[Rfam]
RNA sequence: CAUGCGUUGCCUGGAGGCAUUGUAGAAGCAUGUACAUUGCAGUCCCUGUCAGAUUCUUAUGAAUCUGCAAAUUCUGCU
Numbered sequence: 001c002a003u004g005c006g007u008u009g010c011c012u013g014g015a016g017g018c019a020u021u022g023u024a025g026a027a028g029c030a031u032g033u034a035c036a037u038u039g040c041a042g043u044c045c046c047u048g049u050c051a052g053a054u055u056c057u058u059a060u061g062a063a064u065c066u067g068c069a070a071a072u073u074c075u076g077c078u
Stems, first nucleotide, its partner, number of pairs: 013046002016043001022077006028040003050067007
RNA: Mammalian CPEB3 ribozyme